[Rfam]
Shown here is an 81-nucleotide RNA sequence from Legionella pneumophila, a member of the family "Legionella RNA 69". For this family Rfam cites "Sequencing illustrates the transcriptional response of Legionella pneumophila during infection and identifies seventy novel small non-coding RNAs" (Weissenmayer et al., PLoS One, 2011). Rfam's curators write: Identified by strand specific sequencing of the transcriptional response during broth growth and during infection inside the host. Infection specific expression. The match comes from Rfam's covariance-model search (66 bits).
RNA sequence: AGACGAUGCUUAUGCAUCUCCUCAGCCCAAACGAAUCCUGGAUAUCAAUUGGAUUUAUAUCAUCCUUAUCAGUAACUCACG
Number, nucleotide and partner (000 for none) at each position: 001a000002g020003a019004c000005g018006a017007u016008g015009c014010u000011u000012a000013u000014g009015c008016a007017u006018c005019u003020c002021c000022u000023c000024a054025g000026c052027c051028c000029a049030a000031a000032c000033g045034a000035a043036u042037c041038c000039u000040g000041g037042a036043u035044a000045u033046c000047a000048a000049u029050u000051g027052g026053a000054u024055u000056u000057a000058u000059a000060u000061c000062a000063u000064c000065c000066u000067u000068a000069u000070c000071a000072g000073u000074a000075a000076c000077u000078c000079a000080c000081g000